[Rfam]
RNA sequence: UUAAUAAAAGUAUUCCGAGCUUACAAGUCUAAGGGUAACUAUGACUUCAAAGCCGAUGGGUAUAUAAAGAAAUUUAUGUGCCUCCCACGUUUGGAAAGGAUUAUAGACUUUUUACUC
Numbered sequence: 001u002u003a004a005u006a007a008a009a010g011u012a013u014u015c016c017g018a019g020c021u022u023a024c025a026a027g028u029c030u031a032a033g034g035g036u037a038a039c040u041a042u043g044a045c046u047u048c049a050a051a052g053c054c055g056a057u058g059g060g061u062a063u064a065u066a067a068a069g070a071a072a073u074u075u076a077u078g079u080g081c082c083u084c085c086c087a088c089g090u091u092u093g094g095a096a097a098g099g100a101u102u103a104u105a106g107a108c109u110u111u112u113u114a115c116u117c
Stems, first nucleotide, its partner, number of pairs: 003111002011103002014100003019053004025047005033040002058083011084094002